Rfam assigns this 71-nucleotide sequence from Sciurus vulgaris to the family "Small nucleolar RNA SNORD113/SNORD114 family". Its Rfam clan is "SNORD74 clan". For this family Rfam cites "Identification of tandemly-repeated C/D snoRNA genes at the imprinted human 14q32 domain reminiscent of those at the Prader-Willi/Angelman syndrome region" (Cavaille et al., Hum Mol Genet, 2002). Rfam describes the family as follows. The imprinted human domain at 14q32 contains two clusters of tandemly repeated small nucleolar RNAs named 14q(I) and 14q(II) snoRNAs. The match comes from Rfam's covariance-model search (48 bits). Its family is annotated with RNA processing and nucleolus in the Gene Ontology. By type it is a C/D-box small nucleolar RNA.
[Rfam]
RNA sequence: AGGAUUCAUGAUGGCUGUUGGGGACACAUGAGUCAUAAUGAUGAACAGAUGUCUGCACGUCUGAGGUCCAC
Numbered sequence: 001a002g003g004a005u006u007c008a009u010g011a012u013g014g015c016u017g018u019u020g021g022g023g024a025c026a027c028a029u030g031a032g033u034c035a036u037a038a039u040g041a042u043g044a045a046c047a048g049a050u051g052u053c054u055g056c057a058c059g060u061c062u063g064a065g066g067u068c069c070a071c
Stems, first nucleotide, its partner, number of pairs: 002069005